[Rfam]
RNA sequence: UAAGUAAAUCAGACAAUCGCAUGCACACUGCCGAAAGGUUGUGCCUGAGGAACGUCCGAGCUUCAUAGAGCAAAGGUGCUGGAUAACACCCAGUCGAGGCGACUCGAAGGAAAGUGCAACAGAAAUAAACCACCUAUAACCAUAAUGAAGGGGGAGCAAUAUUGUAAUUUUCUUCAUUGUGCAUGAUAAUAAAGAAGAAGUACCACGAAGGUCUUUAUUAUAAGUAGGAAAGGAUGGAAAGGCGAGGUAAGAGCUCACCGUUUUUUUGGCGACAAAAAAAGCAAUGUAAACCCCACUUGAAGCAAGACCGUUUAGAAAGAUAGUUUAAAACUGCUCGUUAUAUCUUAGGUAGGUCGCUAAAGUAAAUAGGUAACUAUUUAUGUAGAUAGAUGAUUGUCAAAUACAGGACUCGGCGUAUAGAUUUGGUUAAAAA
Numbered sequence: 001u002a003a004g005u006a007a008a009u010c011a012g013a014c015a016a017u018c019g020c021a022u023g024c025a026c027a028c029u030g031c032c033g034a035a036a037g038g039u040u041g042u043g044c045c046u047g048a049g050g051a052a053c054g055u056c057c058g059a060g061c062u063u064c065a066u067a068g069a070g071c072a073a074a075g076g077u078g079c080u081g082g083a084u085a086a087c088a089c090c091c092a093g094u095c096g097a098g099g100c101g102a103c104u105c106g107a108a109g110g111a112a113a114g115u116g117c118a119a120c121a122g123a124a125a126u127a128a129a130c131c132a133c134c135u136a137u138a139a140c141c142a143u144a145a146u147g148a149a150g151g152g153g154g155a156g157c158a159a160u161a162u163u164g165u166a167a168u169u170u171u172c173u174u175c176a177u178u179g180u181g182c183a184u185g186a187u188a189a190u191a192a193a194g195a196a197g198a199a200g201u202a203c204c205a206c207g208a209a210g211g212u213c214u215u216u217a218u219u220a221u222a223a224g225u226a227g228g229a230a231a232g233g234a235u236g237g238a239a240a241g242g243c244g245a246g247g248u249a250a251g252a253g254c255u256c257a258c259c260g261u262u263u264u265u266u267u268g269g270c271g272a273c274a275a276a277a278a279a280a281g282c283a284a285u286g287u288a289a290a291c292c293c294c295a296c297u298u299g300a301a302g303c304a305a306g307a308c309c310g311u312u313u314a315g316a317a318a319g320a321u322a323g324u325u326u327a328a329a330a331c332u333g334c335u336c337g338u339u340a341u342a343u344c345u346u347a348g349g350u351a352g353g354u355c356g357c358u359a360a361a362g363u364a365a366a367u368a369g370g371u372a373a374c375u376a377u378u379u380a381u382g383u384a385g386a387u388a389g390a391u392g393a394u395u396g397u398c399a400a401a402u403a404c405a406g407g408a409c410u411c412g413g414c415g416u417a418u419a420g421a422u423u424u425g426g427u428u429a430a431a432a433a
Stems, first nucleotide, its partner, number of pairs: 001429003005425006011418001012398007020047002023044005052416003056413005061302004068336004073298003077295002079093004094108001095106004109293002114291002116287003130233002133228005241259002244256003260282001261280008306355004317346005327341001329339003362381008